[Rfam]
Nucleotides: 067
Base pairs, nucleotide, nucleotide: 004064006062010058011057012056015053016052017051020049021048023046024045026043027042028041029040
Number, partner (000 for none) and nucleotide at each position: 001000a002000c003000a004064a005000g006062a007000u008000u009000c010058g011057g012056a013000u014000c015053g016052u017051c018000g019000g020049u021048c022000g023046a024045u025000c026043g027042a028041g029040c030000a031000a032000u033000g034000u035000c036000a037000c038000u039000c040029g041028c042027u043026c044000c045024a046023u047000g048021g049020a050000a051017g052016g053015u054000c055000u056012u057011u058010u059000c060000a061000u062006u063000a064004u065000c066000a067000u